[Rfam]
RNA sequence: ACGUUAAUUUGAUAAUAAACUCAUAUAAUUUCAAGAAUAAGGCUUGAAAGUUUCUACCCGUCACCGAAAAUGCCGGACUAUGAGUGGAGAUGAAUCAUUA
Numbered sequence: 001a002c003g004u005u006a007a008u009u010u011g012a013u014a015a016u017a018a019a020c021u022c023a024u025a026u027a028a029u030u031u032c033a034a035g036a037a038u039a040a041g042g043c044u045u046g047a048a049a050g051u052u053u054c055u056a057c058c059c060g061u062c063a064c065c066g067a068a069a070a071u072g073c074c075g076g077a078c079u080a081u082g083a084g085u086g087g088a089g090a091u092g093a094a095u096c097a098u099u100a
Stems, first nucleotide, its partner, number of pairs: 019085007029049007058076003062072002
This 100-nucleotide RNA sequence from Cerasibacillus terrae belongs to the Rfam family "Purine riboswitch aptamer". Rfam links the family to the GO term purine nucleobase biosynthetic process.